[Rfam]
RNA: Bacterial RNase P class B
Organism: Bombilactobacillus mellis
RNA sequence: GGUUUUGAGUAAUCGCGGUUUGUGAAUGCAAGCUGAGGAAAGUCCACGCCGGCAUAAGCUGCAAUGCUUAUAGUGUUCGCGUUCAGCCCAAUAAGCUGGAGAAUUCGGCAAUCGAAUUACGGCGGUCAAAUUGCUAAGGUCUUUUAGAUUAGGCAAAAGUAGCCUGAAAGUGCCACAGAAACGCAGUCUUUUGGAAACAAAAGAAUGGAACGGGUAAACCCCACGAGCAGGAAACCCAAACUUUGGUAGGGGAGUUUCGAUACGGGAAAAUAAACCUACGUCGAAAACACUAGUAAUAGUGUAGAUAGAUGAUUACUAAAAACAGUUAGUAGCGUAACUGUUGGAACAGAACGUGGCUUAUAGAA
Numbered sequence: 001g002g003u004u005u006u007g008a009g010u011a012a013u014c015g016c017g018g019u020u021u022g023u024g025a026a027u028g029c030a031a032g033c034u035g036a037g038g039a040a041a042g043u044c045c046a047c048g049c050c051g052g053c054a055u056a057a058g059c060u061g062c063a064a065u066g067c068u069u070a071u072a073g074u075g076u077u078c079g080c081g082u083u084c085a086g087c088c089c090a091a092u093a094a095g096c097u098g099g100a101g102a103a104u105u106c107g108g109c110a111a112u113c114g115a116a117u118u119a120c121g122g123c124g125g126u127c128a129a130a131u132u133g134c135u136a137a138g139g140u141c142u143u144u145u146a147g148a149u150u151a152g153g154c155a156a157a158a159g160u161a162g163c164c165u166g167a168a169a170g171u172g173c174c175a176c177a178g179a180a181a182c183g184c185a186g187u188c189u190u191u192u193g194g195a196a197a198c199a200a201a202a203g204a205a206u207g208g209a210a211c212g213g214g215u216a217a218a219c220c221c222c223a224c225g226a227g228c229a230g231g232a233a234a235c236c237c238a239a240a241c242u243u244u245g246g247u248a249g250g251g252g253a254g255u256u257u258c259g260a261u262a263c264g265g266g267a268a269a270a271u272a273a274a275c276c277u278a279c280g281u282c283g284a285a286a287a288c289a290c291u292a293g294u295a296a297u298a299g300u301g302u303a304g305a306u307a308g309a310u311g312a313u314u315a316c317u318a319a320a321a322a323c324a325g326u327u328a329g330u331a332g333c334g335u336a337a338c339u340g341u342u343g344g345a346a347c348a349g350a351a352c353g354u355g356g357c358u359u360a361u362a363g364a365a
Base pairs, nucleotide, nucleotide: 004365005364006363007361008317009316010315011314012313013312014311016035017034018033019032020031021030040359041358042357044356045355046354047353048352049231050230052228053227054071055070056069057068058067059066077226078225079224081222082100083099084098085097086096087095101120102118103117104116105115106114107113121221122220124164125163126162131156132155133154134153138150139149140148170219171218172215173214174213187204188203189202190201191200192199193198235251236250237249255286256285257284258283259282260281261280287302288301289300290299291298292297321342322341323340324339325338326337327336
Dot-bracket structure: ...(((((((((((.((((((........))))))....[[[.[[[[[((.((((((((......)))))).....(((.(((((((.......))))))(((((((.....)))))).)((.(((....((((...(((.......)))..)))).....))).....(((((............(((((((....)))))))........)))..))))).))))).))...(((...........)))...(((((((..................)))))))((((((....))))))........)))))))...(((((((........))))))).........]]]]]]]].).)))